Potassium channel RNA editing signal: a 114-nucleotide RNA sequence from Catagonus wagneri. The family has 85 seed sequences and 14,095 matches in Rfam 15.1. By type it is a cis-regulatory element.

RNA sequence: UUGGGCUAUGGAGAUAUGUAUCCCCAAACGUGGUCAGGGAUGCUGGUGGGCGCCCUGUGUGCUCUGGCUGGAGUGCUGACUAUAGCCAUGCCAGUUCCUGUCAUUGUCAACAAU
Dot-bracket structure: .(.(...((((.((((.(.((...............((.(........(((.........)))..........).))................)).).)))).))))...).).